Shown here is a 144-nucleotide RNA from Ferrimonas balearica, a member of the family "Molybdenum/Tungsten riboswitch aptamer (Moco RNA motif)". On this family, see Weinberg et al., Nucleic Acids Res 2007: "Identification of 22 candidate structured RNAs in bacteria using the CMfinder comparative genomics pipeline". Pairs were carried over by alignment from the consensus structure, which is taken from published work.
Nucleotides: 144
Base pairs, nucleotide, nucleotide: 006135011130012129013128015127016126017125020062021061022060023059024058026056027055030054031053032052036049037048038047039046064078065077066076067075068074081107082106083105084104085103086102087101088100089099090098091097108121109120
Number, partner (000 for none) and nucleotide at each position: 001000g002000c003000a004000a005000g006135c007000a008000g009000u010000u011130g012129u013128u014000a015127a016126c017125c018000g019000a020062g021061c022060c023059c024058g025000u026056c027055g028000g029000u030054a031053c032052c033000u034000a035000a036049g037048u038047c039046c040000a041000g042000c043000a044000a045000g046039g047038g048037a049036u050000a051000u052032g053031g054030u055027c056026g057000u058024c059023g060022g061021g062020c063000c064078g065077u066076g067075g068074c069000a070000u071000c072000a073000g074068g075067c076066c077065a078064c079000c080000g081107g082106g083105g084104u085103a086102g087101a088100u089099u090098g091097a092000g093000a094000a095000a096000g097091u098090u099089a100088a101087u102086c103085u104084g105083c106082c107081u108121u109120c110000c111000u112000c113000u114000a115000u116000u117000u118000u119000a120109g121108g122000a123000a124000a125017g126016g127015u128013g129012a130011c131000a132000c133000a134000u135006g136000c137000g138000a139000g140000a141000g142000c143000u144000c